[Rfam]
RNA sequence: GCCGAGCUUGGUAACGCACACUUAUUACCCGAGUGGGGCAUUAAGGGUAUGGGACAUUGGCUCUGUUCAUGAAGUCGGUUUUCUACUAGCUUGAAUCUGGCCUGCCCAUUCCAAGCUUGGAGUUGAGUCUUGAGACUUAGGCGGAAGCUUGGGUCUCAUGUCUCUUAGAGUGGAAGGCACUGCGUGAGGCUGGUUUCACAGAACAGCGAGAACUUCCUGCUCCUGGCAGUGGAAGGAAGGAUUACAUGCCGGUGCUUUAAGUGGGUUCCAAUAUGGCUCCGUGUGUAGACUCAUAAUUGGACCAUACCUUUU
Dot-bracket structure: ((((((..((......))..))).....((....)))))...((((((((((..((((((.((((..((((.((((((..(((..(.((.(.....(((((.((.((.(((((.(((.(((((.(((.(.((((((((((((....)))))))))))).).)))(....).(((((....(.(((....(((......)))....))).)..))))).))))).)))..)))))....))....)).))))).)))....).)))..)).....)))).))))..)))).)..))).))..)))))))))).
Numbered sequence: 001g002c003c004g005a006g007c008u009u010g011g012u013a014a015c016g017c018a019c020a021c022u023u024a025u026u027a028c029c030c031g032a033g034u035g036g037g038g039c040a041u042u043a044a045g046g047g048u049a050u051g052g053g054a055c056a057u058u059g060g061c062u063c064u065g066u067u068c069a070u071g072a073a074g075u076c077g078g079u080u081u082u083c084u085a086c087u088a089g090c091u092u093g094a095a096u097c098u099g100g101c102c103u104g105c106c107c108a109u110u111c112c113a114a115g116c117u118u119g120g121a122g123u124u125g126a127g128u129c130u131u132g133a134g135a136c137u138u139a140g141g142c143g144g145a146a147g148c149u150u151g152g153g154u155c156u157c158a159u160g161u162c163u164c165u166u167a168g169a170g171u172g173g174a175a176g177g178c179a180c181u182g183c184g185u186g187a188g189g190c191u192g193g194u195u196u197c198a199c200a201g202a203a204c205a206g207c208g209a210g211a212a213c214u215u216c217c218u219g220c221u222c223c224u225g226g227c228a229g230u231g232g233a234a235g236g237a238a239g240g241a242u243u244a245c246a247u248g249c250c251g252g253u254g255c256u257u258u259a260a261g262u263g264g265g266u267u268c269c270a271a272u273a274u275g276g277c278u279c280c281g282u283g284u285g286u287a288g289a290c291u292c293a294u295a296a297u298u299g300g301a302c303c304a305u306a307c308c309u310u311u312u
Stems, first nucleotide, its partner, number of pairs: 001039003004023003009018002029036002043311010055299002057296003060291001062289004068283004073278004077269002081265003086261001088256002091254001097252005103246002106240002109234005115227003119223005125164003129160001131158012165170001172217005181210001183208003190201003